[Rfam]
Shown here is a 66-nucleotide sequence from Hevea brasiliensis, a member of the family "GAIT element". Rfam describes the family as follows. This family represents a cis-acting element in the 3'-UTR of the ceruloplasmin (Cp) gene called gamma interferon inhibitor of translation (GAIT). The GAIT element is involved in selective translational silencing of the Cp transcript. Ceruloplasmin (Cp) is a multifunctional, copper-containing glycoprotein produced by the liver and secreted into the plasma. As an acute-phase protein, its plasma concentration can double during multiple inflammatory conditions. Plasma Cp has been reported to be an independent risk factor for cardiovascular disease, including atherosclerosis, carotid restenosis after endarterectomy, and myocardial infarction. Translational silencing of Cp, and possibly other transcripts, mediated by the GAIT element may contribute to the resolution of the local inflammatory response following cytokine activation of macrophages. Rfam 15.1 lists 121 matches to the family in 113 species. A search with the family's covariance model found it, with a score of 37 bits. The literature on the family includes a 2003 paper in Mol Cell Biol by Sampath et al., "Transcript-selective translational silencing by gamma interferon is directed by a novel structural element in the ceruloplasmin mRNA 3' untranslated region". The organism belongs to Hevea, within Eukaryota. Pairs were carried over by alignment from the consensus structure, which is taken from published work.
RNA sequence: GUAUGUAUGUAUAAACUCAAAUGCUAGCUUAAAUGCAUAAGCAUUAAAAGAAAAGACAAAACAUAC
Number, nucleotide and partner (000 for none) at each position: 001g066002u065003a064004u063005g062006u061007a000008u056009g000010u054011a000012u000013a000014a000015a000016c000017u000018c000019a000020a045021a044022u043023g042024c041025u040026a000027g000028c000029u000030u037031a000032a000033a000034u000035g000036c000037a030038u000039a000040a025041g024042c023043a022044u021045u020046a000047a000048a000049a000050g000051a000052a000053a000054a010055g000056a008057c000058a000059a000060a000061a006062c005063a004064u003065a002066c001